Overview
Rfam assigns this 103-nucleotide sequence from Prunus dulcis to the family "Small nucleolar RNA snoR8a".

[Rfam]
RNA sequence: UGGGUUUGGCUAUGAUUAUAAAGUAAGUCUGAAUGCUUAGUUGUAAUUUUGCAAUUGGGUACCAGUAUGACAGACUCCUAUACACCCAUAGAAUAUGAGCCCC
Numbered sequence: 001u002g003g004g005u006u007u008g009g010c011u012a013u014g015a016u017u018a019u020a021a022a023g024u025a026a027g028u029c030u031g032a033a034u035g036c037u038u039a040g041u042u043g044u045a046a047u048u049u050u051g052c053a054a055u056u057g058g059g060u061a062c063c064a065g066u067a068u069g070a071c072a073g074a075c076u077c078c079u080a081u082a083c084a085c086c087c088a089u090a091g092a093a094u095a096u097g098a099g100c101c102c103c
Stems, first nucleotide, its partner, number of pairs: 003103002008101004